[Rfam]
A member of the RNA family "mir-27 microRNA precursor family" from Peromyscus maniculatus, 78 nucleotides long.
It scores 76 bits against the family's covariance model.
A reference for the family is Chen et al. (2005), "The developmental miRNA profiles of zebrafish as determined by small RNA cloning", Genes Dev.
Rfam 15.1 lists 1,440 matches to the family in 645 species.
RNA sequence: CUGAGGAGCAGGGCUUAGCUGCUUGUGAGCAAGGUCCACAGUGAGUCGUGUUCACAGUGGCUAAGUUCCGCCCCACCG
Numbered sequence: 001c002u003g004a005g006g007a008g009c010a011g012g013g014c015u016u017a018g019c020u021g022c023u024u025g026u027g028a029g030c031a032a033g034g035u036c037c038a039c040a041g042u043g044a045g046u047c048g049u050g051u052u053c054a055c056a057g058u059g060g061c062u063a064a065g066u067u068c069c070g071c072c073c074c075a076c077c078g
Stems, first nucleotide, its partner, number of pairs: 011068010025055007